Small nucleolar RNA SNORA5: a 136-nucleotide RNA sequence from Alligator mississippiensis. Rfam classes the family as an H/ACA-box small nucleolar RNA. Taxonomically the source falls in Alligator (Eukaryota, Sarcopterygii, Sauropsida, Crocodylia). Clan: SNORA5 clan. ACA5 is a member of the H/ACA class of snoRNA that guide the sites of modification of uridines to pseudouridines.
[Rfam]
RNA sequence: UGCAGCCGUGUCACGCUCGGGGCUCCUCUUUCCCAUAGGAGCCCUAGCACAGCCCGCUGCCAUGGCAAAACCUGUAGCACACGGGCCCCACCACUCUGCCGGUGAGCUCUGGGGGGUAUAUCCACUGCAGACGUCC
Numbered sequence: 001u002g003c004a005g006c007c008g009u010g011u012c013a014c015g016c017u018c019g020g021g022g023c024u025c026c027u028c029u030u031u032c033c034c035a036u037a038g039g040a041g042c043c044c045u046a047g048c049a050c051a052g053c054c055c056g057c058u059g060c061c062a063u064g065g066c067a068a069a070a071c072c073u074g075u076a077g078c079a080c081a082c083g084g085g086c087c088c089c090a091c092c093a094c095u096c097u098g099c100c101g102g103u104g105a106g107c108u109c110u111g112g113g114g115g116g117u118a119u120a121u122c123c124a125c126u127g128c129a130g131a132c133g134u135c136c
Stems, first nucleotide, its partner, number of pairs: 002060004019045009074128004086114005